[Rfam]
RNA sequence: UGGCUGCUGCUGGUGCUAGACCCUAAAUUGGAAACAAUAAUAGUGAUUCUGUGACAAUUUAAUGGGUCUAGUAGUUGCAGUCUGGCCC
Numbered sequence: 001u002g003g004c005u006g007c008u009g010c011u012g013g014u015g016c017u018a019g020a021c022c023c024u025a026a027a028u029u030g031g032a033a034a035c036a037a038u039a040a041u042a043g044u045g046a047u048u049c050u051g052u053g054a055c056a057a058u059u060u061a062a063u064g065g066g067u068c069u070a071g072u073a074g075u076u077g078c079a080g081u082c083u084g085g086c087c088c
Stems, first nucleotide, its partner, number of pairs: 002087003006081005014073010024061007034052003

The family of this 88-nucleotide sequence from Lymphocryptovirus macacinegamma4 is "mir-BART9 microRNA precursor family". Pairs were carried over by alignment from the consensus structure, which was predicted with RNAalifold.